[Rfam]
RNA sequence: GGGUCAAUGAUGAGCAUUUUAUAUUGCUGGAGGAGCCUUGAUGACUGAGAGUUCACACAUGACGCUGAGGCCC
Number, nucleotide and partner (000 for none) at each position: 001g073002g072003g071004u070005c067006a066007a000008u064009g063010a000011u000012g000013a000014g000015c000016a000017u000018u000019u000020u000021a000022u000023a000024u000025u000026g000027c000028u000029g000030g000031a000032g000033g000034a000035g000036c000037c000038u000039u000040g000041a000042u000043g000044a000045c000046u000047g000048a000049g000050a000051g000052u000053u000054c000055a000056c000057a000058c000059a000060u000061g000062a000063c009064g008065c000066u006067g005068a000069g000070g004071c003072c002073c001

The family of this 73-nucleotide sequence from Carlito syrichta is "Small nucleolar RNA SNORD115". Lineage of the source: Eukaryota > Metazoa > Vertebrata > Euteleostomi > Carlito. A reference for the family is Cavaille et al. (2000), "Identification of brain-specific and imprinted small nucleolar RNA genes exhibiting an unusual genomic organization", Proc Natl Acad Sci U S A. It is annotated as a C/D-box small nucleolar RNA. The match comes from Rfam's covariance-model search (44 bits). Gene Ontology terms of the family: nucleolus and RNA processing.